[Rfam]
RNA sequence: AAGCAUGUUGCAACCCCGGGCUUCUCUGAAUAACCAAUGACGUGAAAGCCCCAUUGCACAUGCAAAAUCGAUACCAUUCGUGUUGCAGUUCAUUUCACUAAAUUCCACGAUAGAUCUGUGUCAAAGUAAUGGUAACAUAG
Numbered sequence: 001a002a003g004c005a006u007g008u009u010g011c012a013a014c015c016c017c018g019g020g021c022u023u024c025u026c027u028g029a030a031u032a033a034c035c036a037a038u039g040a041c042g043u044g045a046a047a048g049c050c051c052c053a054u055u056g057c058a059c060a061u062g063c064a065a066a067a068u069c070g071a072u073a074c075c076a077u078u079c080g081u082g083u084u085g086c087a088g089u090u091c092a093u094u095u096c097a098c099u100a101a102a103u104u105c106c107a108c109g110a111u112a113g114a115u116c117u118g119u120g121u122c123a124a125a126g127u128a129a130u131g132g133u134a135a136c137a138u139a140g
Stems, first nucleotide, its partner, number of pairs: 003063006010057002018051005023045002026042001073133006081123002084120005092111003

This 140-nucleotide sequence from Trifolium pratense belongs to the Rfam family "small nucleolar RNA snoR134". It scores 100 bits against the family's covariance model. It is annotated as an H/ACA-box small nucleolar RNA. NCBI's taxonomy places the organism under Eukaryota, Gunneridae, Pentapetalae, Fabales, Trifolium.